About this RNA:
Shown here is a 101-nucleotide sequence from Novosphingobium sp. AAP83, a member of the family "Glycine riboswitch aptamer".
RNA sequence: GCUGAUCGCGCGGGAGAGUUCUCUCGAUUCGUUCAGAAUCGGGAGACGCCGAAGGAGCAACCGCCCCGGAAUCUCUCAGGCACAUGGACCGCGUGGGUCGA
Dot-bracket structure: .....((((((((......(((((((((.........))))))))).(((((..(((...((.....))...))))).))).......)))))))).....